[Rfam]
RNA sequence: UAGCAAGUCUCCAGUGUGCUAGAGUCUGCCGUGAUCUGUGCCUUCCUACAACACUUACAGAACCGUUUUGAAAUUGUUUGAGGCCUUGUCCUGGUCCUUCCAGAGCAAGGUUAUAGAAAUUUCAGACAAUU
Numbered sequence: 001u002a003g004c005a006a007g008u009c010u011c012c013a014g015u016g017u018g019c020u021a022g023a024g025u026c027u028g029c030c031g032u033g034a035u036c037u038g039u040g041c042c043u044u045c046c047u048a049c050a051a052c053a054c055u056u057a058c059a060g061a062a063c064c065g066u067u068u069u070g071a072a073a074u075u076g077u078u079u080g081a082g083g084c085c086u087u088g089u090c091c092u093g094g095u096c097c098u099u100c101c102a103g104a105g106c107a108a109g110g111u112u113a114u115a116g117a118a119a120u121u122u123c124a125g126a127c128a129a130u131u
Base pairs, nucleotide, nucleotide: 003058005056006055007054008053018041019040022036023035025034026033069124070123071122072121073120084110085109086108087107088106089105091103092102093101
Dot-bracket structure: ..(.((((.........((..((.((......))))...))...........)))).)..........(((((..........((((((.(((.......))).)))))).........))))).......

Rfam assigns this 131-nucleotide RNA sequence from Castor canadensis to the family "Small nucleolar RNA SNORA9". A search with the family's covariance model found it, with a score of 114 bits. Rfam's curators write: ACA9 is a member of the H/ACA class of snoRNA that guide the sites of modification of uridines to pseudouridines. The family's consensus secondary structure was predicted with PFOLD. By type it is an H/ACA-box small nucleolar RNA. The family is grouped with related families in Rfam's "SNORA9 clan". The organism belongs to Castor, within Eukaryota.